Rfam assigns this 135-nucleotide RNA sequence from Larimichthys crocea to the family "Small nucleolar RNA SNORA14". Rfam describes the family as follows. ACA14 is a member of the H/ACA class of snoRNA that guide the sites of modification of uridines to pseudouridines. Lineage of the source: Eukaryota > Euteleostomi > Teleostei > Euacanthomorphacea > Larimichthys. The base pairs follow the family's consensus structure, which was predicted with RNAfold. Its family is annotated with nucleolus and RNA processing in the Gene Ontology.
RNA sequence: UAGCAUCCUUAAUAAACCCCCCAGUUGUCAUUUGUGGUCUCUGGGACAAGAAAGGGUGCAAGAUCAAUCUUAGAAUCAUCCAAAGCUGAGAGCCAUUUGUCAGUAGCUCUCGGUUAUUUCACCUCUAAGACAGAA
Number, nucleotide and partner (000 for none) at each position: 001u000002a000003g059004c058005a057006u056007c000008c000009u051010u050011a000012a000013u000014a000015a000016a000017c000018c000019c000020c045021c044022c043023a042024g041025u000026u000027g038028u037029c000030a000031u000032u000033u000034g000035u000036g000037g028038u027039c000040u000041c024042u023043g022044g021045g020046a000047c000048a000049a000050g010051a009052a000053a000054g000055g000056g006057u005058g004059c003060a000061a000062g000063a000064u134065c133066a000067a000068u130069c129070u128071u127072a126073g125074a124075a000076u000077c000078a000079u000080c000081c000082a000083a000084a115085g114086c113087u112088g111089a110090g109091a000092g107093c106094c000095a000096u000097u000098u103099g000100u000101c000102a000103g098104u000105a000106g093107c092108u000109c090110u089111c088112g087113g086114u085115u084116a000117u000118u000119u000120c000121a000122c000123c000124u074125c073126u072127a071128a070129g069130a068131c000132a000133g065134a064135a000
The family's RNA type in Rfam is H/ACA-box small nucleolar RNA.